[Rfam]
RNA sequence: GGGAGUGUAUGGGGCUCUGGUGUCCCCCCCGGACUUCAAAUCCGGUGUUUCCUGCCAAAAGUGGGAAGGGUGGGUUCGAUUCCCACACGCUCUC
Numbered sequence: 001g002g003g004a005g006u007g008u009a010u011g012g013g014g015c016u017c018u019g020g021u022g023u024c025c026c027c028c029c030c031g032g033a034c035u036u037c038a039a040a041u042c043c044g045g046u047g048u049u050u051c052c053u054g055c056c057a058a059a060a061g062u063g064g065g066a067a068g069g070g071u072g073g074g075u076u077c078g079a080u081u082c083c084c085a086c087a088c089g090c091u092c093u094c
Base pairs, nucleotide, nucleotide: 001094002093003092004091005090006089007088008087012027013026014025017022029045030044031043032042033041048068049067050066051065052064071085072084073083074082
The family of this 94-nucleotide RNA sequence from Candidatus Magnetomonas plexicatena is "Selenocysteine transfer RNA". Rfam links the family to the GO term triplet codon-amino acid adaptor activity. A search with the family's covariance model found it, with a score of 71 bits. The source organism's lineage runs through Bacteria, Pseudomonadati, Nitrospirota, Nitrospiria and Candidatus Magnetomonas.